[Rfam]
RNA sequence: GAAGUUCUUCGGGGCAGGGGGUAGUUCCCGACCGGCGGUAUAGUCCGCGACCGAGUUAAUCUCGUUGAUUUGGUGACAGUAAGGAAAGAUUACUGAAUUCCAAAACCGACAGUAUAGUCUGGAUGAAAGAAGAAGUUU
Numbered sequence: 001g002a003a004g005u006u007c008u009u010c011g012g013g014g015c016a017g018g019g020g021g022u023a024g025u026u027c028c029c030g031a032c033c034g035g036c037g038g039u040a041u042a043g044u045c046c047g048c049g050a051c052c053g054a055g056u057u058a059a060u061c062u063c064g065u066u067g068a069u070u071u072g073g074u075g076a077c078a079g080u081a082a083g084g085a086a087a088g089a090u091u092a093c094u095g096a097a098u099u100c101c102a103a104a105a106c107c108g109a110c111a112g113u114a115u116a117g118u119c120u121g122g123a124u125g126a127a128a129g130a131a132g133a134a135g136u137u138u
Stems, first nucleotide, its partner, number of pairs: 003136001005134006017029003031118002033108002035048004043106002052064002069104005110121003
Rfam assigns this 138-nucleotide sequence from Lachnoclostridium phytofermentans to the family "FMN riboswitch aptamer (RFN element)". The RFN element is a highly conserved domain that is found frequently in the 5'-untranslated regions of prokaryotic mRNAs that encode for flavin mononucleotide (FMN) biosynthesis and transport proteins. Pairs were carried over by alignment from the consensus structure, which is taken from published work. Taxonomically the source falls in Lachnoclostridium phytofermentans (Bacteria, Bacillota, Lachnospirales, Lachnoclostridium). The match comes from Rfam's covariance-model search (99 bits).